[Rfam]
RNA sequence: UUGGUACAGUCCUGUUUUAGAAUUCCUACGCUUUACCCUGUAAAAUCUGGCAAAGCGUCUGAAUUCUGAAAUGGGACCUGU
Numbered sequence: 001u002u003g004g005u006a007c008a009g010u011c012c013u014g015u016u017u018u019a020g021a022a023u024u025c026c027u028a029c030g031c032u033u034u035a036c037c038c039u040g041u042a043a044a045a046u047c048u049g050g051c052a053a054a055g056c057g058u059c060u061g062a063a064u065u066c067u068g069a070a071a072u073g074g075g076a077c078c079u080g081u
Stems, first nucleotide, its partner, number of pairs: 010075003014072008023063003028058007036050002